RNA sequence: AGAACAAAUAUUGUUAGUACUCGUAUAAUAUCGAGAAUAAGGCUUGAUAGUUUCUGCCAGAUGGCCAUAAACUAUCUGACUACGAGUGGAAGUGUACCUAAA
Dot-bracket structure: .................((((((((...(((((((.......)))))))........(((((((.......)))))))..))))))))..............
RNA: Purine riboswitch aptamer